This 254-nucleotide RNA sequence from Neobacillus mesonae belongs to the Rfam family "T-box leader". Gene Ontology term of the family: tRNA binding. Rfam describes the family as follows. Uncharged tRNA acts as the effector for transcription antitermination of genes in the T-box leader family. A search with the family's covariance model found it, with a score of 95 bits. The source organism's lineage runs through Bacteria, Bacillati, Bacillota, Caryophanales and Neobacillus.
[Rfam]
RNA sequence: UAAAAAGUAAUGAUAAGGACAACAGUAUUUGUUUACGGUUUUUAGAGAGGGAGGCCGCGGCUGAAAGUCUCCUAACACGAAAGAAUACUUACCGCCUUUAAACUUCAGCAGUGAACGUUCUUUUUUAAAAGAUACAAGUAAUUGUUGACGGUCUCAAGCCGUUACCUGACCAAAGUCAAUUUCAUUCGGAGCCAUGCUUGCUGAAGUUGAAAAAUUUGGGUGGAACCACGUGUUAAUAAUAACUCGUCCCUAUU
Numbered sequence: 001u002a003a004a005a006a007g008u009a010a011u012g013a014u015a016a017g018g019a020c021a022a023c024a025g026u027a028u029u030u031g032u033u034u035a036c037g038g039u040u041u042u043u044a045g046a047g048a049g050g051g052a053g054g055c056c057g058c059g060g061c062u063g064a065a066a067g068u069c070u071c072c073u074a075a076c077a078c079g080a081a082a083g084a085a086u087a088c089u090u091a092c093c094g095c096c097u098u099u100a101a102a103c104u105u106c107a108g109c110a111g112u113g114a115a116c117g118u119u120c121u122u123u124u125u126u127a128a129a130a131g132a133u134a135c136a137a138g139u140a141a142u143u144g145u146u147g148a149c150g151g152u153c154u155c156a157a158g159c160c161g162u163u164a165c166c167u168g169a170c171c172a173a174a175g176u177c178a179a180u181u182u183c184a185u186u187c188g189g190a191g192c193c194a195u196g197c198u199u200g201c202u203g204a205a206g207u208u209g210a211a212a213a214a215u216u217u218g219g220g221u222g223g224a225a226c227c228a229c230g231u232g233u234u235a236a237u238a239a240u241a242a243c244u245c246g247u248c249c250c251u252a253u254u
Base pairs, nucleotide, nucleotide: 007103008102015098016097017096018095028085029084030083038076039075040074050072051071052070053069054068055067106147107146108145109144110143111142112141149161150160151159178208179207180206181205182204183203184202218250219249220248228247229246230245232243233242234241235240